[Rfam]
RNA sequence: GCGAUGAGCUGAUUUGCGUAAGCCGAGAGACAACGUACGAUAUGCAGAUGUGAACUGCAUGUUCUUUCGCCGCAAAUUUCGAAAAGAAAGGCAUCCGUAUCUCAUACGGAUGCC
Numbered sequence: 001g002c003g004a005u006g007a008g009c010u011g012a013u014u015u016g017c018g019u020a021a022g023c024c025g026a027g028a029g030a031c032a033a034c035g036u037a038c039g040a041u042a043u044g045c046a047g048a049u050g051u052g053a054a055c056u057g058c059a060u061g062u063u064c065u066u067u068c069g070c071c072g073c074a075a076a077u078u079u080c081g082a083a084a085a086g087a088a089a090g091g092c093a094u095c096c097g098u099a100u101c102u103c104a105u106a107c108g109g110a111u112g113c114c
Base pairs, nucleotide, nucleotide: 014075015074016073017072018071024069025068026067027066028065029064030063034039041061042060044058045057046056090114091113092112093111094110095109096108097107098106